RNA: L31-Firmicutes ribosomal protein leader
Organism: Xylaria grammica
RNA sequence: CUCUGUCUCCGGAAUAGGAGUCAGGGCGCGAGGAG
Numbered sequence: 001c002u003c004u005g006u007c008u009c010c011g012g013a014a015u016a017g018g019a020g021u022c023a024g025g026g027c028g029c030g031a032g033g034a035g
Stems, first nucleotide, its partner, number of pairs: 001026005008019003